[Rfam]
RNA sequence: CCCCUCGACCCUGAGGAUAUCACGGAAUACAUUCUUAAUGGUCUUGAUGAUGAUUAAAAACCAUUUAUUGACGCCGUUCAAGCUUGUGAUAUUCCCAUCUCCUUUGAUGAAUUAAAUGAAAAACUGAUCUGUCUCGAGC
Number, nucleotide and partner (000 for none) at each position: 001c000002c000003c000004c138005u137006c136007g135008a134009c000010c000011c000012u000013g000014a000015g000016g000017a000018u000019a000020u000021c000022a000023c000024g000025g000026a000027a000028u000029a000030c000031a000032u000033u000034c000035u000036u000037a000038a000039u000040g000041g000042u000043c000044u000045u000046g000047a000048u000049g000050a000051u000052g000053a000054u000055u000056a000057a000058a000059a000060a000061c000062c000063a000064u000065u000066u000067a000068u000069u000070g000071a000072c000073g000074c000075c000076g000077u000078u000079c000080a000081a000082g000083c000084u000085u000086g000087u000088g108089a000090u106091a105092u000093u000094c000095c000096c000097a000098u000099c000100u000101c000102c000103u000104u000105u091106g090107a000108u088109g000110a000111a000112u000113u000114a000115a000116a000117u000118g000119a000120a000121a000122a000123a000124c000125u000126g000127a000128u000129c000130u000131g000132u000133c000134u008135c007136g006137a005138g004139c000
A member of the RNA family "Small nucleolar RNA Z247" from Beta vulgaris, 139 nucleotides long. Rfam classes the family as a C/D-box small nucleolar RNA. Rfam 15.1 lists 7,071 matches to the family in 142 species. The organism belongs to Beta vulgaris, within Eukaryota. It scores 40 bits against the family's covariance model. For this family Rfam cites "The high diversity of snoRNAs in plants: identification and comparative study of 120 snoRNA genes from Oryza sativa" (Chen et al., Nucleic Acids Res, 2003).